[Rfam]
Nucleotides: 098
Stems, first nucleotide, its partner, number of pairs: 018084008030046005056074005
Number, partner (000 for none) and nucleotide at each position: 001000u002000u003000a004000a005000g006000a007000a008000a009000u010000a011000a012000a013000a014000a015000a016000u017000u018084u019083a020082c021081u022080c023079g024078u025077a026000u027000a028000u029000a030046c031045c032044c033043u034042g035000a036000a037000u038000a039000a040000g041000g042034c043033a044032g045031g046030g047000a048000g049000u050000a051000u052000c053000u054000a055000c056074c057073g058072g059071g060070a061000g062000c063000c064000g065000u066000a067000a068000a069000g070060u071059c072058c073057u074056g075000a076000c077025u078024a079023u080022g081021a082020g083019u084018g085000a086000u087000g088000u089000g090000a091000u092000a093000u094000a095000c096000u097000a098000u